[Rfam]
RNA sequence: AAAAUGUUCUGGACACCCCGUAAACCAAGACCUCUAGGGUGUAUAAAUUACGUCUUUAAUACCUAAGCCUGAGGGUGGCUUAGGAAUAGUAAAACCG
Numbered sequence: 001a002a003a004a005u006g007u008u009c010u011g012g013a014c015a016c017c018c019c020g021u022a023a024a025c026c027a028a029g030a031c032c033u034c035u036a037g038g039g040u041g042u043a044u045a046a047a048u049u050a051c052g053u054c055u056u057u058a059a060u061a062c063c064u065a066a067g068c069c070u071g072a073g074g075g076u077g078g079c080u081u082a083g084g085a086a087u088a089g090u091a092a093a094a095c096c097g
Stems, first nucleotide, its partner, number of pairs: 014041005020035001027056005062084007
The family of this 97-nucleotide RNA from Aurunvirus STIM5 is "PhotoRC-II RNA".
The family's RNA type in Rfam is cis-regulatory element.
A search with the family's covariance model found it, with a score of 73 bits.
The base pairs follow the family's consensus structure, which is taken from published work.
NCBI's taxonomy places the organism under Viruses, Duplodnaviria, Heunggongvirae, Caudoviricetes, Aurunvirus STIM5.